[Rfam]
RNA sequence: UUGACCAUAAAAUGAGAAUCAUUAUUAUUACAACCACUGGCCUCGCGGCCAGCUGGAUAAGCUGACAAGCCCAGUUCGGACUCAUCAGAUUAUCUCCUCAUCAGGCUAAUCACGGUUAUUGACCCGGCAAAUUGCCGGGUCUUUUUUUG
Dot-bracket structure: .................................(..((((((....))))))..)......((((..(((.......)..))..)))).......(((....)))...............((((((((.....))))))))........
PrrF RNA: a 149-nucleotide sequence from Metapseudomonas resinovorans. About the family: PrrF RNA is a small RNA involved in iron homeostasis and is found exclusively in Pseudomonas species. Pairs were carried over by alignment from the consensus structure, which is taken from published work.